The family of this 137-nucleotide sequence from Viridibacillus arenosi is "PyrR binding site". A reference for the family is Bonner et al. (2001), "Molecular recognition of pyr mRNA by the Bacillus subtilis attenuation regulatory protein PyrR", Nucleic Acids Res. Rfam 15.1 lists 1,498 matches to the family in 930 species. This family represents the PyrR binding site and terminator structure. This RNA structure is found upstream of a variety of genes involved in pyrimidine biosynthesis and transport. The alignment also includes a portion of the antiterminator structure.
[Rfam]
RNA sequence: UUCACCUUUAAAGACAGUCCAGAGAGGCUGAGAAGGUAUGCGUGAAAUGUGGAAAAUCCUUGUGAUGCAAGUUUUUUUCGACAUAUCUUAAGUACACCUAUAUCCUCUUGGGCUCAUUGCUCAAGAGGUUUUUUUAU
Numbered sequence: 001u002u003c004a005c006c007u008u009u010a011a012a013g014a015c016a017g018u019c020c021a022g023a024g025a026g027g028c029u030g031a032g033a034a035g036g037u038a039u040g041c042g043u044g045a046a047a048u049g050u051g052g053a054a055a056a057u058c059c060u061u062g063u064g065a066u067g068c069a070a071g072u073u074u075u076u077u078u079c080g081a082c083a084u085a086u087c088u089u090a091a092g093u094a095c096a097c098c099u100a101u102a103u104c105c106u107c108u109u110g111g112g113c114u115c116a117u118u119g120c121u122c123a124a125g126a127g128g129u130u131u132u133u134u135u136a137u
Stems, first nucleotide, its partner, number of pairs: 004037006015030005050080007059071004100132001102130001104128010